[Rfam]
RNA sequence: UCGUCAGUAAGGUACAUCCUUACCUGUUACUCCUACUAAGGAGUAUCAGAUCAUGAUGAGUGGAGAUUCAUGAGAUAUGAUUAAUAUCUCCGUCUUACAGGGAACAGCAACACCUUGUAAGAUCCAUUCUGAU
Numbered sequence: 001u002c003g004u005c006a007g008u009a010a011g012g013u014a015c016a017u018c019c020u021u022a023c024c025u026g027u028u029a030c031u032c033c034u035a036c037u038a039a040g041g042a043g044u045a046u047c048a049g050a051u052c053a054u055g056a057u058g059a060g061u062g063g064a065g066a067u068u069c070a071u072g073a074g075a076u077a078u079g080a081u082u083a084a085u086a087u088c089u090c091c092g093u094c095u096u097a098c099a100g101g102g103a104a105c106a107g108c109a110a111c112a113c114c115u116u117g118u119a120a121g122a123u124c125c126a127u128u129c130u131g132a133u
Stems, first nucleotide, its partner, number of pairs: 024049003028045006072090002075087003078083001094121008
U8 small nucleolar RNA: a 133-nucleotide sequence from Channa argus. Lineage of the source: Eukaryota > Chordata > Vertebrata > Neopterygii > Channa. Rfam links the family to the GO terms nucleolus and RNA processing.